[Rfam]
RNA: Streptomyces RNA 5676
Organism: Streptomyces paludis
RNA sequence: AGAUGAGAGAUACACCCCGCUCGCAGGAGACUGCGGGCGAGACUGAUGCGGGGCAUCCCCAGCGCCGCUUCGGUCGUGCCUUCGCGCACAUCACUGGAGCUUCUGGCUCCGGAUCUCCUCACCGAUCGGA
Numbered sequence: 001a002g003a004u005g006a007g008a009g010a011u012a013c014a015c016c017c018c019g020c021u022c023g024c025a026g027g028a029g030a031c032u033g034c035g036g037g038c039g040a041g042a043c044u045g046a047u048g049c050g051g052g053g054c055a056u057c058c059c060c061a062g063c064g065c066c067g068c069u070u071c072g073g074u075c076g077u078g079c080c081u082u083c084g085c086g087c088a089c090a091u092c093a094c095u096g097g098a099g100c101u102u103c104u105g106g107c108u109c110c111g112g113a114u115c116u117c118c119u120c121a122c123c124g125a126u127c128g129g130a
Stems, first nucleotide, its partner, number of pairs: 004121004009117002018039009042074005049067003053063002076089004094112007122129002